[Rfam]
Rfam assigns this 100-nucleotide RNA sequence from Vibrio campbellii to the family "Purine riboswitch aptamer".
RNA sequence: GUAUAAUCGCGCCGUUUGCUUCGUAUAACCCCAAUGAUAUGGUUUGGGGGUCUCUACCAGCUCCCGCAAAGUGCUGAUUACGAAGAGUUGAGAUCACUGU
Numbered sequence: 001g002u003a004u005a006a007u008c009g010c011g012c013c014g015u016u017u018g019c020u021u022c023g024u025a026u027a028a029c030c031c032c033a034a035u036g037a038u039a040u041g042g043u044u045u046g047g048g049g050g051u052c053u054c055u056a057c058c059a060g061c062u063c064c065c066g067c068a069a070a071g072u073g074c075u076g077a078u079u080a081c082g083a084a085g086a087g088u089u090g091a092g093a094u095c096a097c098u099g100u
Stems, first nucleotide, its partner, number of pairs: 019085007029049006058076004063071001

Its family is annotated with purine nucleobase biosynthetic process in the Gene Ontology. The base pairs follow the family's consensus structure, which is taken from published work.